[Rfam]
RNA sequence: UAGAAAAACAUAAUUGAGCGCAACGCUGGUGUAACUUGUUUUAAUCCAUUCAAAAAUUGAAGAAAAAAAAGGAAGUUACAUCAACGCUGCACUCAAUGAUGUUCAUU
Numbered sequence: 001u002a003g004a005a006a007a008a009c010a011u012a013a014u015u016g017a018g019c020g021c022a023a024c025g026c027u028g029g030u031g032u033a034a035c036u037u038g039u040u041u042u043a044a045u046c047c048a049u050u051c052a053a054a055a056a057u058u059g060a061a062g063a064a065a066a067a068a069a070a071g072g073a074a075g076u077u078a079c080a081u082c083a084a085c086g087c088u089g090c091a092c093u094c095a096a097u098g099a100u101g102u103u104c105a106u107u
Stems, first nucleotide, its partner, number of pairs: 007103005013097006020090003024086002027083002030080003
Annotation:
Shown here is a 107-nucleotide RNA from Eutrema salsugineum, a member of the family "MIR397 microRNA precursor family". NCBI's taxonomy places the organism under Eukaryota, Spermatophyta, Pentapetalae, rosids, Eutrema. Its family is annotated with RISC complex and miRNA-mediated post-transcriptional gene silencing in the Gene Ontology. Rfam 15.1 lists 496 matches to the family in 218 species. For this family Rfam cites "Rice MicroRNA effector complexes and targets" (Wu et al., Plant Cell, 2009). It scores 56 bits against the family's covariance model.